[Rfam]
Nucleotides: 054
Stems, first nucleotide, its partner, number of pairs: 013043001014041003020036001022034004
Number, partner (000 for none) and nucleotide at each position: 001000u002000a003000c004000a005000a006000g007000c008000a009000u010000g011000a012000a013043u014041g015040u016039a017000a018000g019000u020036c021000a022034c023033u024032u025031u026000g027000g028000a029000u030000a031025a032024g033023a034022g035000c036020g037000u038000c039016u040015g041014c042000u043013a044000a045000a046000u047000g048000g049000c050000a051000u052000a053000u054000a
Shown here is a 54-nucleotide sequence from Oncorhynchus tshawytscha, a member of the family "UnaL2 LINE 3' element". It is annotated as a cis-regulatory element.